The family of this 80-nucleotide RNA sequence from Manduca sexta is "mir-750 microRNA precursor family". The base pairs follow the family's consensus structure, which was predicted with RNAalifold. Its family is annotated with RISC complex and miRNA-mediated post-transcriptional gene silencing in the Gene Ontology.
RNA sequence: CUCACGUCUGAGUUGGACAGGGGAUCUUGACAGUUUAAUGUCACUUGCUGCCAGAUCUAUCUUUCCAGCUCACGCGUGAG
Numbered sequence: 001c002u003c004a005c006g007u008c009u010g011a012g013u014u015g016g017a018c019a020g021g022g023g024a025u026c027u028u029g030a031c032a033g034u035u036u037a038a039u040g041u042c043a044c045u046u047g048c049u050g051c052c053a054g055a056u057c058u059a060u061c062u063u064u065c066c067a068g069c070u071c072a073c074g075c076g077u078g079a080g
Base pairs, nucleotide, nucleotide: 001080002079003078004077005076006075007074009072010071011070012069013068014067015066016065017064019062020061021060022058023057024056025055026054027053029051031050032049033048034047